[Rfam]
RNA sequence: GUUUGUUGUCUUUCUUGGACGUUUCCUCCCAAAACUCAAGCCGCUGGGGCAACCCAGCGGUUUUUUUUAUUAUUUUC
Number, nucleotide and partner (000 for none) at each position: 001g000002u000003u000004u000005g000006u000007u000008g020009u019010c018011u017012u000013u000014c000015u000016u000017g011018g010019a009020c008021g000022u000023u000024u000025c000026c000027u000028c000029c000030c000031a000032a000033a000034a000035c000036u000037c000038a000039a062040g061041c060042c059043g058044c057045u056046g055047g054048g000049g000050c000051a000052a000053c000054c047055c046056a045057g044058c043059g042060g041061u040062u039063u000064u000065u000066u000067u000068u000069a000070u000071u000072a000073u000074u000075u000076u000077c000
The family of this 77-nucleotide RNA sequence from Paramagnetospirillum marisnigri is "Makes More Granules Regulator RNA (mmgR)". By type it is a small RNA. Clan: suhB sRNA clan. For this family Rfam cites "Prediction of Sinorhizobium meliloti sRNA genes and experimental detection in strain 2011" (Valverde et al., BMC Genomics, 2008). It scores 54 bits against the family's covariance model.